[Rfam]
The record is a 92-nucleotide RNA from Salvator merianae, which matches "Small nucleolar SNORD12/SNORD106" in Rfam. By type it is a C/D-box small nucleolar RNA. A reference for the family is Huttenhofer et al. (2001), "RNomics: an experimental approach that identifies 201 candidates for novel, small, non-messenger RNAs in mouse", EMBO J. Taxonomically the source falls in Salvator (Eukaryota, Euteleostomi, Tetrapoda, Bifurcata).
RNA sequence: CCAGUGGUACAUGAUGACUUUAUCUUUUUUCCCCAUCAUAUCGGCAAUGCUGAUCAAAACUGUGUUGUAGCCAGAUAAUCUGAUUCCACUGA
Numbered sequence: 001c002c003a004g005u006g007g008u009a010c011a012u013g014a015u016g017a018c019u020u021u022a023u024c025u026u027u028u029u030u031c032c033c034c035a036u037c038a039u040a041u042c043g044g045c046a047a048u049g050c051u052g053a054u055c056a057a058a059a060c061u062g063u064g065u066u067g068u069a070g071c072c073a074g075a076u077a078a079u080c081u082g083a084u085u086c087c088a089c090u091g092a
Stems, first nucleotide, its partner, number of pairs: 002091006009084001